[Rfam]
RNA sequence: GUGUUUUGGGCACCAUGGAAGACUAGUGAUUUUGUUGUUGUUAAGUCUGCAGUGCUGACAACAAAUCCCAGUCUGCCUCAGUGAGCAAAAAU
Numbered sequence: 001g002u003g004u005u006u007u008g009g010g011c012a013c014c015a016u017g018g019a020a021g022a023c024u025a026g027u028g029a030u031u032u033u034g035u036u037g038u039u040g041u042u043a044a045g046u047c048u049g050c051a052g053u054g055c056u057g058a059c060a061a062c063a064a065a066u067c068c069c070a071g072u073c074u075g076c077c078u079c080a081g082u083g084a085g086c087a088a089a090a091a092u
Base pairs, nucleotide, nucleotide: 002091004089005088006087008086011083012082013081017077018076020074021073022072023071024070026069028067029066030065031064032063034062035061036060037059038058039057
RNA: mir-7 microRNA precursor family
Organism: Danionella cerebrum